[Rfam]
RNA sequence: UUGUCAGGUAGGCUAAUCCUUACCUGUUCCUCCCUUUGGAGGGCAGAUUGGAAUACGAUGAUUGGAGUUUGCAUGAUUCCUGAUUGUCUCUGCAUAAUCAGGACUUUCAACAUCCUGAUUGCUCCCAUCUGAU
Dot-bracket structure: .......................(((.((((((....)))))))))............................((....(....)..))....((((((((...........))))))))............

The record is a 133-nucleotide RNA from Rhinolophus ferrumequinum, which matches "U8 small nucleolar RNA" in Rfam. For this family Rfam cites "The sequence of the 5' end of the U8 small nucleolar RNA is critical for 5.8S and 28S rRNA maturation" (Peculis, Mol Cell Biol, 1997). Pairs were carried over by alignment from the consensus structure, which is taken from published work. It scores 120 bits against the family's covariance model. The family has 55 seed sequences and 1,597 matches in Rfam 15.1.